[Rfam]
The record is a 372-nucleotide RNA sequence from Rhodococcus xishaensis, which matches "transfer-messenger RNA" in Rfam.
About the family: Bacterial tmRNA, also known as 10Sa RNA or SsrA, is named for its dual tRNA and mRNA-like properties. Its role is to liberate the mRNA from a stalled ribosome. To accomplish this part of the tmRNA is used as a reading frame that ends in a translation stop signal. The broken mRNA is replaced in the ribosome by the tmRNA and translation of the tmRNA leads to addition of a proteolysis tag to the incomplete protein enabling recognition by a protease.
A reference for the family is Zwieb et al. (2003), "tmRDB (tmRNA database)", Nucleic Acids Res.
Taxonomically the source falls in Rhodococcus (Bacteria, Bacillati, Mycobacteriales, Nocardiaceae).

RNA sequence: GGGGCUGAACGGUUUCGACUGCGUACGUUGAGUUAGGGGAAGCGUGUCGGUGCAGGCAAGAGACCACCGUAAGCGUCGCUGCAAACAAAUAAGCGCCGAUUCCAAUCAGCGCGACUACGCACUCGCUGCCUGAUCAGCGACUGCGUGUCUGUCAGACCGGGUUCGCCCUCGCCCCGGAUCCUGGCAUCAGCUAGAGGGCUUCACCGUUCCACUCGGUCGCGGAGUGGGGCGGGACAACCAACAGCGACUGGGAUCGUCAUCACGGCUUGUUCGCGGGACCGGGAGAUCCGAGUAGAGGCAUAGCGAACUGCACACGGAGAAGCCCUGGCAAAGCGGCGGAGGACCCGGGUUCGAUUCCCGGCAGCUCCACCA
Numbered sequence: 001g002g003g004g005c006u007g008a009a010c011g012g013u014u015u016c017g018a019c020u021g022c023g024u025a026c027g028u029u030g031a032g033u034u035a036g037g038g039g040a041a042g043c044g045u046g047u048c049g050g051u052g053c054a055g056g057c058a059a060g061a062g063a064c065c066a067c068c069g070u071a072a073g074c075g076u077c078g079c080u081g082c083a084a085a086c087a088a089a090u091a092a093g094c095g096c097c098g099a100u101u102c103c104a105a106u107c108a109g110c111g112c113g114a115c116u117a118c119g120c121a122c123u124c125g126c127u128g129c130c131u132g133a134u135c136a137g138c139g140a141c142u143g144c145g146u147g148u149c150u151g152u153c154a155g156a157c158c159g160g161g162u163u164c165g166c167c168c169u170c171g172c173c174c175c176g177g178a179u180c181c182u183g184g185c186a187u188c189a190g191c192u193a194g195a196g197g198g199c200u201u202c203a204c205c206g207u208u209c210c211a212c213u214c215g216g217u218c219g220c221g222g223a224g225u226g227g228g229g230c231g232g233g234a235c236a237a238c239c240a241a242c243a244g245c246g247a248c249u250g251g252g253a254u255c256g257u258c259a260u261c262a263c264g265g266c267u268u269g270u271u272c273g274c275g276g277g278a279c280c281g282g283g284a285g286a287u288c289c290g291a292g293u294a295g296a297g298g299c300a301u302a303g304c305g306a307a308c309u310g311c312a313c314a315c316g317g318a319g320a321a322g323c324c325c326u327g328g329c330a331a332a333g334c335g336g337c338g339g340a341g342g343a344c345c346c347g348g349g350u351u352c353g354a355u356u357c358c359c360g361g362c363a364g365c366u367c368c369a370c371c372a
Stems, first nucleotide, its partner, number of pairs: 001368007019341002022338003028332001032329007043316005048069005056082003118145004123140004150186006157177002159174004165199006204232009215249006251289005257283002260281001264280002269308004277301001345361005